[Rfam]
RNA sequence: CGCGGGCAUGCAGGAGAGUGUGGCGUGGAAACACGACCACCGCCGAAGGCGCAAGCGCACCCGCACAAUCGCUCAGGCAAAUGGACUGCAUGCACGGC
Numbered sequence: 001c002g003c004g005g006g007c008a009u010g011c012a013g014g015a016g017a018g019u020g021u022g023g024c025g026u027g028g029a030a031a032c033a034c035g036a037c038c039a040c041c042g043c044c045g046a047a048g049g050c051g052c053a054a055g056c057g058c059a060c061c062c063g064c065a066c067a068a069u070c071g072c073u074c075a076g077g078c079a080a081a082u083g084g085a086c087u088g089c090a091u092g093c094a095c096g097g098c
Stems, first nucleotide, its partner, number of pairs: 006093008020040004042078003045074002049072003

The record is a 98-nucleotide sequence from Microvirgula aerodenitrificans, which matches "Glycine riboswitch aptamer" in Rfam.